This 136-nucleotide RNA from Nonomuraea aridisoli belongs to the Rfam family "c-di-AMP riboswitch aptamer (ydaO/yuaA leader)".
Lineage of the source: Bacteria > Actinomycetota > Streptosporangiales > Streptosporangiaceae > Nonomuraea.
RNA sequence: GACCGGCUGGCGCCGAAUCCCGGACGUUCCGGGAACCGGGGACCCACCAUCUGGGGUGAAUCCGGCCGCCGUGCCGGUAGGGCAUCUCCACGUCCGAACCCGUCAGCUAACCCGGUAGGCGUGAUGGAGAGGACAC
Numbered sequence: 001g002a003c004c005g006g007c008u009g010g011c012g013c014c015g016a017a018u019c020c021c022g023g024a025c026g027u028u029c030c031g032g033g034a035a036c037c038g039g040g041g042a043c044c045c046a047c048c049a050u051c052u053g054g055g056g057u058g059a060a061u062c063c064g065g066c067c068g069c070c071g072u073g074c075c076g077g078u079a080g081g082g083c084a085u086c087u088c089c090a091c092g093u094c095c096g097a098a099c100c101c102g103u104c105a106g107c108u109a110a111c112c113c114g115g116u117a118g119g120c121g122u123g124a125u126g127g128a129g130a131g132g133a134c135a136c
Stems, first nucleotide, its partner, number of pairs: 011121004018034005035116006045053002054101003062077004080095004